Shown here is a 127-nucleotide RNA from Propithecus coquereli, a member of the family "Small nucleolar RNA SNORA27".
ACA27 is a member of the H/ACA class of snoRNA that guide the sites of modification of uridines to pseudouridines.
Taxonomically the source falls in Propithecus (Eukaryota, Bilateria, Vertebrata, Tetrapoda).
The pairing is the family consensus, mapped onto this sequence.
By type it is an H/ACA-box small nucleolar RNA.
The match comes from Rfam's covariance-model search (134 bits).
[Rfam]
RNA sequence: UACCCCCUUUUCACUUUGUCAGUUGGACUUAUGUCUUUAUUGGUCAUUCAAGUGUGGCAAAGGAAAUACCCUUUUAAAACUCAGGCACACUGGGUAUUUGUCUUGUAUCUGGUCGGAGGAAACAAAU
Numbered sequence: 001u002a003c004c005c006c007c008u009u010u011u012c013a014c015u016u017u018g019u020c021a022g023u024u025g026g027a028c029u030u031a032u033g034u035c036u037u038u039a040u041u042g043g044u045c046a047u048u049c050a051a052g053u054g055u056g057g058c059a060a061a062g063g064a065a066a067u068a069c070c071c072u073u074u075u076a077a078a079a080c081u082c083a084g085g086c087a088c089a090c091u092g093g094g095u096a097u098u099u100g101u102c103u104u105g106u107a108u109c110u111g112g113u114c115g116g117a118g119g120a121a122a123c124a125a126a127u
Base pairs, nucleotide, nucleotide: 032059033058034057035056040051041050042049043048070119071118072117073116074115082105083103084102085101086100087099089097